[Rfam]
Nucleotides: 440
Base pairs, nucleotide, nucleotide: 001436002435003434004433005432006431007430008429012426013385014384015383016382017381018380019379021041022040023039024038025037026036027035028034046424047423048422050421051420052419053418054417055288056287057286058285068317070283071282072281073280074279075089076088077087078086090104091102092101093100094099105278106277110276111275112272113271114270126219127218128215129214130213131212132211134209135208136207137206138205139204227245228244229243230242231241232240247267248265249264250263251262252261253260254259292342293341294340295338300332301331302330303329304328311325312324313323349368350367351366352365353364354363355362356361
Number, partner (000 for none) and nucleotide at each position: 001436a002435g003434a004433g005432u006431c007430a008429g009000c010000g011000a012426a013385g014384g015383c016382a017381a018380u019379u020000g021041c022040g023039g024038a025037c026036u027035c028034a029000a030000u031000a032000c033000c034028u035027g036026a037025g038024u039023c040022u041021g042000a043000g044000g045000a046424a047423a048422g049000u050421c051420c052419g053418g054417a055288c056287u057286c058285c059000c060000a061000a062000a063000a064000g065000a066000c067000u068317a069000a070283a071282c072281c073280u074279g075089c076088u077087g078086g079000a080000u081000a082000a083000c084000g085000c086078c087077c088076a089075g090104u091102g092101c093100g094099a095000g096000u097000g098000a099094u100093c101092g102091u103000g104090a105278g106277g107000a108000u109000a110276g111275u112272g113271c114270c115000a116000c117000a118000g119000a120000a121000a122000a123000a124000u125000a126219c127218c128215g129214c130213c131212a132211a133000g134209a135208a136207u137206a138205g139204g140000g141000a142000a143000c144000a145000g146000g147000g148000g149000a150000c151000a152000g153000g154000u155000u156000a157000c158000a159000g160000g161000u162000u163000a164000c165000a166000g167000g168000g169000a170000a171000g172000a173000c174000c175000c176000c177000u178000g179000a180000g181000a182000g183000c184000u185000g186000a187000u188000c189000a190000c191000c192000u193000a194000g195000a196000a197000c198000u199000a200000a201000u202000c203000a204139u205138c206137u207136g208135u209134u210000g211132u212131u213130g214129g215128u216000a217000a218127g219126g220000g221000u222000g223000c224000a225000a226000a227245g228244g229243u230242g231241c232240g233000g234000u235000a236000a237000g238000a239000g240232c241231g242230c243229a244228c245227c246000a247267g248265c249264a250263a251262c252261g253260u254259c255000g256000a257000g258000a259254g260253g261252c262251g263250u264249u265248g266000g267247c268000u269000c270114g271113g272112u273000a274000a275111a276110c277106c278105c279074c280073a281072g282071g283070u284000g285058g286057g287056a288055g289000c290000a291000a292342g293341g294340u295338c296000g297000g298000a299000g300332g301331a302330a303329c304328u305000a306000a307000g308000g309000u310000u311325g312324g313323u314000c315000u316000u317068u318000u319000c320000c321000c322000c323313g324312u325311u326000c327000c328304g329303g330302u331301u332300u333000a334000a335000g336000a337000g338295g339000u340294a341293c342292c343000g344000c345000u346000u347000g348000a349368g350367g351366u352365g353364u354363u355362u356361g357000g358000u359000a360000a361356c362355a363354a364353a365352c366351a367350u368349c369000c370000c371000a372000g373000a374000u375000a376000g377000a378000u379019a380018a381017u382016u383015g384014c385013c386000c387000u388000c389000u390000u391000g392000a393000c394000u395000g396000u397000a398000u399000a400000c401000a402000g403000u404000u405000g406000a407000g408000a409000a410000a411000a412000c413000a414000g415000a416000a417054u418053c419052c420051g421050g422048c423047u424046u425000a426012u427000g428000u429008c430007u431006g432005g433004c434003u435002c436001u437000c438000u439000c440000u